[Rfam]
RNA sequence: GGCCGACUAGCUCAGUUGGUUAGAGCGUCGUGCUAAUAAGCUUAACGCGAAGGUCUUGGGUUCGACCCCCACGUUGGCCA
Number, nucleotide and partner (000 for none) at each position: 001g079002g078003c077004c076005g075006a074007c073008u000009a000010g026011c025012u024013c023014a000015g000016u000017u000018g000019g000020u000021u000022a000023g013024a012025g011026c010027g000028u050029c049030g048031u047032g046033c000034u000035a000036a000037u000038a000039a000040g000041c000042u000043u000044a000045a000046c032047g031048c030049g029050a028051a000052g000053g000054u000055c000056u000057u071058g070059g069060g068061u000062u000063c000064g000065a000066c000067c000068c060069c059070c058071a057072c000073g007074u006075u005076g004077g003078c002079c001080a000

A member of the RNA family "tRNA" from Collybiopsis confluens, 80 nucleotides long. It scores 49 bits against the family's covariance model. Pairs were carried over by alignment from the consensus structure, which is taken from published work.